Background
MIR2912 microRNA precursor family: a 161-nucleotide RNA sequence from Populus tomentosa. A search with the family's covariance model found it, with a score of 71 bits. The organism belongs to Populus, within Eukaryota. The base pairs follow the family's consensus structure, which was predicted with RNAalifold.
Nucleotides: 161
Base pairs, nucleotide, nucleotide: 002160003159004158005157006156007155009151012149013148016145017144018143019142020141021139023137025135035128036127037126046124048122050120051119053117054116055115056114057113059110060109062107064105065104068102073097074096077093078092
Number, partner (000 for none) and nucleotide at each position: 001000a002160c003159u004158a005157g006156a007155a008000c009151u010000c011000c012149a013148g014000c015000u016145a017144u018143g019142g020141g021139u022000a023137a024000a025135a026000u027000u028000c029000u030000a031000a032000g033000c034000a035128g036127u037126g038000u039000u040000u041000a042000g043000g044000c045000u046124a047000g048122a049000u050120u051119g052000u053117a054116g055115g056114a057113u058000a059110a060109a061000u062107u063000a064105u065104g066000a067000c068102u069000u070000c071000u072000c073097u074096u075000u076000u077093g078092u079000g080000g081000c082000c083000a084000a085000a086000c087000u088000u089000u090000g091000a092078a093077u094000u095000u096074g097073a098000a099000a100000a101000u102068g103000a104065c105064a106000g107062a108000u109060u110059u111000g112000g113057g114056u115055c116054u117053u118000c119051c120050a121000c122048u123000a124046u125000u126037c127036a128035u129000g130000a131000a132000c133000a134000u135025u136000g137023u138000a139021a140000g141020c142019c143018u144017a145016u146000u147000u148013c149012u150000u151009a152000u153000u154000u155007u156006u157005c158004u159003a160002g161000c